[Rfam]
RNA: Small Cajal body-specific RNA 7
Organism: Eolophus roseicapilla
RNA sequence: UGGAAGUGAUGAAAUAGAGAUAAUCGGAUGUCUGUUUGAAUGGAGAGCAUGUGUGAUAAAUGGAAUUUAAUCCAAGUCAGGCCGGGGGUGGGGUGUGGGGAAUGUGUGUAUAUGCGUGUAUAGAAAAGGCUUUAAAUGGGGGCACUGAUAUUGCUGUGCUGAUUCCGGAGUGCAUCUGAGGCAUGUUGUUAAGUUUUGGGGUGCCAAUUCACAACACUGCCGAUGAUUAAAGCCCAAAACAAGCCCACCAAGACAAGCCUAGGCAUCCUAAGUCUCUAACAGGUUCAUUAAUGAAAGUGAUCCUGUGAUCUGAUCUGA
Numbered sequence: 001u002g003g004a005a006g007u008g009a010u011g012a013a014a015u016a017g018a019g020a021u022a023a024u025c026g027g028a029u030g031u032c033u034g035u036u037u038g039a040a041u042g043g044a045g046a047g048c049a050u051g052u053g054u055g056a057u058a059a060a061u062g063g064a065a066u067u068u069a070a071u072c073c074a075a076g077u078c079a080g081g082c083c084g085g086g087g088g089u090g091g092g093g094u095g096u097g098g099g100g101a102a103u104g105u106g107u108g109u110a111u112a113u114g115c116g117u118g119u120a121u122a123g124a125a126a127a128g129g130c131u132u133u134a135a136a137u138g139g140g141g142g143c144a145c146u147g148a149u150a151u152u153g154c155u156g157u158g159c160u161g162a163u164u165c166c167g168g169a170g171u172g173c174a175u176c177u178g179a180g181g182c183a184u185g186u187u188g189u190u191a192a193g194u195u196u197u198g199g200g201g202u203g204c205c206a207a208u209u210c211a212c213a214a215c216a217c218u219g220c221c222g223a224u225g226a227u228u229a230a231a232g233c234c235c236a237a238a239a240c241a242a243g244c245c246c247a248c249c250a251a252g253a254c255a256a257g258c259c260u261a262g263g264c265a266u267c268c269u270a271a272g273u274c275u276c277u278a279a280c281a282g283g284u285u286c287a288u289u290a291a292u293g294a295a296a297g298u299g300a301u302c303c304u305g306u307g308a309u310c311u312g313a314u315c316u317g318a
Stems, first nucleotide, its partner, number of pairs: 001317004184216006191209001193205001195203001